[Rfam]
Nucleotides: 108
Base pairs, nucleotide, nucleotide: 001108002107003106004105005104006103007102008101013042014041015040016039017038021031022030023029025078026077027076028075043070044069045068046067048066049065051062052061053060054059074100080097081096082095083094084093085092
Number, partner (000 for none) and nucleotide at each position: 001108u002107u003106c004105u005104u006103a007102u008101c009000a010000a011000g012000a013042g014041a015040g016039g017038c018000g019000g020000a021031g022030g023029g024000a025078c026077u027076g028075a029023c030022c031021c032000u033000a034000a035000g036000a037000u038017g039016u040015c041014u042013c043070g044069g045068c046067a047000a048066c049065c050000a051062g052061c053060a054059c055000a056000u057000g058000a059054g060053u061052g062051c063000c064000c065049g066048g067046u068045g069044c070043c071000a072000a073000u074100u075028u076027c077026a078025g079000a080097g081096g082095a083094u084093a085092u086000a087000u088000g089000u090000g091000u092085a093084u094083a095082u096081c097080c098000g099000a100074a101008g102007a103006u104005g105004a106003g107002a108001a
Shown here is a 108-nucleotide RNA sequence from Gracilibacillus halotolerans, a member of the family "SAM riboswitch aptamer (S box leader)".
Taxonomically the source falls in Gracilibacillus (Bacteria, Bacillati, Bacillota, Caryophanales).
Gene Ontology term of the family: regulation of gene expression.